Description
MIR394 microRNA precursor family: a 110-nucleotide RNA from Zizania palustris. The source organism's lineage runs through Eukaryota, Streptophytina, Embryophyta, Mesangiospermae and Zizania.
RNA sequence: CUUACUGAGAGUUCCUUGGCAUUCUGUCCACCUCCAUGCUGAAUCUUGCCGAAAAGGUCUCAAAUCUGUUGGUUAUGGAGGUGGGCAUACUGCCAAUGGAGCUGUGUAGG
Numbered sequence: 001c002u003u004a005c006u007g008a009g010a011g012u013u014c015c016u017u018g019g020c021a022u023u024c025u026g027u028c029c030a031c032c033u034c035c036a037u038g039c040u041g042a043a044u045c046u047u048g049c050c051g052a053a054a055a056g057g058u059c060u061c062a063a064a065u066c067u068g069u070u071g072g073u074u075a076u077g078g079a080g081g082u083g084g085g086c087a088u089a090c091u092g093c094c095a096a097u098g099g100a101g102c103u104g105u106g107u108a109g110g
Stems, first nucleotide, its partner, number of pairs: 013100001016096006025087011

A search with the family's covariance model found it, with a score of 92 bits.